[Rfam]
RNA sequence: AUUGUUUUUGUUUAGUUUGUGGACAAAGACUUAGACUAAGACAAAAAUAAAUUCUCUCUUGCAAUCCAGAACUCAUUGUUCAAGUAUGAGUUUUGAUACAGGUAAGAAGGAACAUG
Numbered sequence: 001a002u003u004g005u006u007u008u009u010g011u012u013u014a015g016u017u018u019g020u021g022g023a024c025a026a027a028g029a030c031u032u033a034g035a036c037u038a039a040g041a042c043a044a045a046a047a048u049a050a051a052u053u054c055u056c057u058c059u060u061g062c063a064a065u066c067c068a069g070a071a072c073u074c075a076u077u078g079u080u081c082a083a084g085u086a087u088g089a090g091u092u093u094u095g096a097u098a099c100a101g102g103u104a105a106g107a108a109g110g111a112a113c114a115u116g
Base pairs, nucleotide, nucleotide: 004030005029006028007027008026009025010024011023016021052112053111054110055109057107058106059105060104061103067095068094069093070092071091072090073089074088075087076086
RNA: Small nucleolar RNA SNORA40
Organism: Panthera tigris